[Rfam]
Bacterial RNase P class A: a 344-nucleotide RNA sequence from Firmicutes bacterium CAG:534. Rfam describes the family as follows. Ribonuclease P (RNase P) is a ubiquitous endoribonuclease, found in archaea, bacteria and eukarya as well as chloroplasts and mitochondria.

RNA sequence: CAAGUAGGAUGAAUGAUCGCGGCUGCCGUAUGGCAGGUGAGGAAAGUCCGGGCUUCACAGGGCAGGAUGCCGGAUAACGUCCGGUGGAGGUGACUCCAAGGAUAGUGCAACAGAAAUAUACCGCCGGCUUUGGGCCGGUAAGGGUGGAAGGGCAGUGUAAGAGACUACCGCCUGCACGGUAACGGGCAGGGCACAUGUAAACCCCAUUCGAAGCAAGACCAAACAGAAAGCGUUUAAAGCCGGCCCGGCCAGCUUUCAGGUGGGUCGCUUGAGGCGGGUGGCAACACUCGUCCUAGAUAGAUGAUCGUUCUCGACAUAACCCGGCUUACAGUCCUGCUUGAUUU
Numbered sequence: 001c002a003a004g005u006a007g008g009a010u011g012a013a014u015g016a017u018c019g020c021g022g023c024u025g026c027c028g029u030a031u032g033g034c035a036g037g038u039g040a041g042g043a044a045a046g047u048c049c050g051g052g053c054u055u056c057a058c059a060g061g062g063c064a065g066g067a068u069g070c071c072g073g074a075u076a077a078c079g080u081c082c083g084g085u086g087g088a089g090g091u092g093a094c095u096c097c098a099a100g101g102a103u104a105g106u107g108c109a110a111c112a113g114a115a116a117u118a119u120a121c122c123g124c125c126g127g128c129u130u131u132g133g134g135c136c137g138g139u140a141a142g143g144g145u146g147g148a149a150g151g152g153c154a155g156u157g158u159a160a161g162a163g164a165c166u167a168c169c170g171c172c173u174g175c176a177c178g179g180u181a182a183c184g185g186g187c188a189g190g191g192c193a194c195a196u197g198u199a200a201a202c203c204c205c206a207u208u209c210g211a212a213g214c215a216a217g218a219c220c221a222a223a224c225a226g227a228a229a230g231c232g233u234u235u236a237a238a239g240c241c242g243g244c245c246c247g248g249c250c251a252g253c254u255u256u257c258a259g260g261u262g263g264g265u266c267g268c269u270u271g272a273g274g275c276g277g278g279u280g281g282c283a284a285c286a287c288u289c290g291u292c293c294u295a296g297a298u299a300g301a302u303g304a305u306c307g308u309u310c311u312c313g314a315c316a317u318a319a320c321c322c323g324g325c326u327u328a329c330a331g332u333c334c335u336g337c338u339u340g341a342u343u344u
Stems, first nucleotide, its partner, number of pairs: 001340010011329001012309007020039002023036005044327003048324005053213004060246004065209005070084005085099001086097004100204002105202002107198003121143002123139007151169002154166003170192001171190005177184002217266004226257006239249003273292008